Shown here is an 85-nucleotide RNA sequence, a member of the family "RAGATH-21 RNA". The base pairs follow the family's consensus structure, which is taken from published work.
RNA sequence: CGAAUAUGCCCUUAAGAGAAACAGAUGAAGCAGAUUUGAGCGGAAUCUGGAGGUUGAAAAGCGGAUGCAAUUUCCGACAUAUUCA
Numbered sequence: 001c002g003a004a005u006a007u008g009c010c011c012u013u014a015a016g017a018g019a020a021a022c023a024g025a026u027g028a029a030g031c032a033g034a035u036u037u038g039a040g041c042g043g044a045a046u047c048u049g050g051a052g053g054u055u056g057a058a059a060a061g062c063g064g065a066u067g068c069a070a071u072u073u074c075c076g077a078c079a080u081a082u083u084c085a
Base pairs, nucleotide, nucleotide: 002084003083004082005081006080007079008078010076022049023048024047025046026045053062054061055060063075064074065073
The family's RNA type in Rfam is small RNA.
The sequence is in the family's curated seed alignment.